[Rfam]
RNA sequence: GGAGUUAACCAGACAGUCGCUGCUUUACCGUUGUCCCAAUAUGGGAAACGGGGUGGGGGAGGAAAGUCCGGGCUCCAUAGGGCAGGGUGCCAGGUAACGCCUGGGAGGUGUAAACCUACGACAAGUGCAACAGAGAGAAAACCGCCUAUGGCCCCUAACGGGAUCAGGUAAGGGUGCAAGGGUGCGGUAAGAGCGCACCGCGCGGCUGGUAACAGUUCGCGGCACGGUAAACUCCACCCGGAGCAAGGCCAAAUAGAGGUUCUCAUGGUAUGGCCCGUACUGAACCCGGGUAGGCUGCUUGAGCUAGUGCGUGAGUACUGGCCUAGAUGAAUGACUGUCCACGACAGAACCCGGCUUAACGGUUAACUCCAUUA
Numbered sequence: 001g002g003a004g005u006u007a008a009c010c011a012g013a014c015a016g017u018c019g020c021u022g023c024u025u026u027a028c029c030g031u032u033g034u035c036c037c038a039a040u041a042u043g044g045g046a047a048a049c050g051g052g053g054u055g056g057g058g059g060a061g062g063a064a065a066g067u068c069c070g071g072g073c074u075c076c077a078u079a080g081g082g083c084a085g086g087g088u089g090c091c092a093g094g095u096a097a098c099g100c101c102u103g104g105g106a107g108g109u110g111u112a113a114a115c116c117u118a119c120g121a122c123a124a125g126u127g128c129a130a131c132a133g134a135g136a137g138a139a140a141a142c143c144g145c146c147u148a149u150g151g152c153c154c155c156u157a158a159c160g161g162g163a164u165c166a167g168g169u170a171a172g173g174g175u176g177c178a179a180g181g182g183u184g185c186g187g188u189a190a191g192a193g194c195g196c197a198c199c200g201c202g203c204g205g206c207u208g209g210u211a212a213c214a215g216u217u218c219g220c221g222g223c224a225c226g227g228u229a230a231a232c233u234c235c236a237c238c239c240g241g242a243g244c245a246a247g248g249c250c251a252a253a254u255a256g257a258g259g260u261u262c263u264c265a266u267g268g269u270a271u272g273g274c275c276c277g278u279a280c281u282g283a284a285c286c287c288g289g290g291u292a293g294g295c296u297g298c299u300u301g302a303g304c305u306a307g308u309g310c311g312u313g314a315g316u317a318c319u320g321g322c323c324u325a326g327a328u329g330a331a332u333g334a335c336u337g338u339c340c341a342c343g344a345c346a347g348a349a350c351c352c353g354g355c356u357u358a359a360c361g362g363u364u365a366a367c368u369c370c371a372u373u374a
Base pairs, nucleotide, nucleotide: 001370002369003368004367005366006365007364008363009362010361012339013338014337015336016335017334018333020059021058023056024055026053028051029050030049031048032047064357065356066355068354069353070352071351072350073243074242075241076240080276081275082274083273085239086238087237088236089235090104091103092102093101094100105119106117107116108115109114120234121233125232126231127228128227142173143172144169145168146167151165153162154161181199182198183197184196185195186194200223201221202220203219204218205217206215207214208213247296248295249294250293258286259285260284261283262282267281268280269279270278271277303322304321305320306319307318308317309316310315
Bacterial RNase P class A: a 374-nucleotide sequence from Candidatus Moranella endobia. Lineage of the source: Bacteria > Pseudomonadota > Gammaproteobacteria > Enterobacteriaceae > Candidatus Moranella endobia. A search with the family's covariance model found it, with a score of 320 bits. Gene Ontology terms of the family: tRNA processing, ribonuclease P activity and dimeric ribonuclease P complex. Rfam's curators write: Ribonuclease P (RNase P) is a ubiquitous endoribonuclease, found in archaea, bacteria and eukarya as well as chloroplasts and mitochondria. Its best characterised activity is the generation of mature 5'-ends of tRNAs by cleaving the 5'-leader elements of precursor-tRNAs. Cellular RNase Ps are ribonucleoproteins.